RNA: SAM riboswitch aptamer (S box leader)
RNA sequence: UAGUUAUCAAGAAAGGUGGAGGGAUUAGACCCUUUGAAGCCUUAGCAACCCUUUGCCCCUUGCAAAGAAGGUGCUAAAUUCUACCCAGCCCAAUGUUUUGGGAUUCCUUGACGGUAUGAGCCGGCAUGGUGGGAAGGAUAACA
Numbered sequence: 001u002a003g004u005u006a007u008c009a010a011g012a013a014a015g016g017u018g019g020a021g022g023g024a025u026u027a028g029a030c031c032c033u034u035u036g037a038a039g040c041c042u043u044a045g046c047a048a049c050c051c052u053u054u055g056c057c058c059c060u061u062g063c064a065a066a067g068a069a070g071g072u073g074c075u076a077a078a079u080u081c082u083a084c085c086c087a088g089c090c091c092a093a094u095g096u097u098u099u100g101g102g103a104u105u106c107c108u109u110g111a112c113g114g115u116a117u118g119a120g121c122c123g124g125c126a127u128g129g130u131g132g133g134a135a136g137g138a139u140a141a142c143a
Stems, first nucleotide, its partner, number of pairs: 003142006013043005021032003026083004044075004049071002051067004079136001084133004089128001